[Rfam]
RNA sequence: GAUAAAGAUAGAGGUGCGGUUUUGAUCAGUACCGCCGGCUAGGCGCCAAGCCGCAAACGCCGGUGGGAAAGGCAACGCCGCCGAAGGGGACGCCUUUGGCAUAGGGGCCCCUGGGCGCAGGCCUGAACAAGGCUGCGACUGUCAUCAUGUGACAUGGUGGAGAGCUAUCGGAUCU
Numbered sequence: 001g002a003u004a005a006a007g008a009u010a011g012a013g014g015u016g017c018g019g020u021u022u023u024g025a026u027c028a029g030u031a032c033c034g035c036c037g038g039c040u041a042g043g044c045g046c047c048a049a050g051c052c053g054c055a056a057a058c059g060c061c062g063g064u065g066g067g068a069a070a071g072g073c074a075a076c077g078c079c080g081c082c083g084a085a086g087g088g089g090a091c092g093c094c095u096u097u098g099g100c101a102u103a104g105g106g107g108c109c110c111c112u113g114g115g116c117g118c119a120g121g122c123c124u125g126a127a128c129a130a131g132g133c134u135g136c137g138a139c140u141g142u143c144a145u146c147a148u149g150u151g152a153c154a155u156g157g158u159g160g161a162g163a164g165c166u167a168u169c170g171g172a173u174c175u
Stems, first nucleotide, its partner, number of pairs: 007169005016081005022075003032066008085112005091107001093105003113140002116137004121133004142160007
The family of this 175-nucleotide RNA from Bittarella massiliensis is "Lysine riboswitch aptamer".
The organism belongs to Bittarella (ex Durand et al. 2017), within Bacteria.
Its family is annotated with lysine biosynthetic process in the Gene Ontology.